[Rfam]
RNA: Small nucleolar RNA SNORA56
RNA sequence: CAGCAGACAGUUGCCCUUUUCUAGUCUGGCUCGAGGGACUCUAGAGGGAGUCCGUCUGCGACAGUAAGUGGUGAGCUCGUGUCUGUCAUCAGUAUUUUGACGAUGGCCGUAGACUUGCCAGAUAGCG
Numbered sequence: 001c002a003g004c005a006g007a008c009a010g011u012u013g014c015c016c017u018u019u020u021c022u023a024g025u026c027u028g029g030c031u032c033g034a035g036g037g038a039c040u041c042u043a044g045a046g047g048g049a050g051u052c053c054g055u056c057u058g059c060g061a062c063a064g065u066a067a068g069u070g071g072u073g074a075g076c077u078c079g080u081g082u083c084u085g086u087c088a089u090c091a092g093u094a095u096u097u098u099g100a101c102g103a104u105g106g107c108c109g110u111a112g113a114c115u116u117g118c119c120a121g122a123u124a125g126c127g
Stems, first nucleotide, its partner, number of pairs: 003059006020045005025038003069120007076112002081107003087102001089100004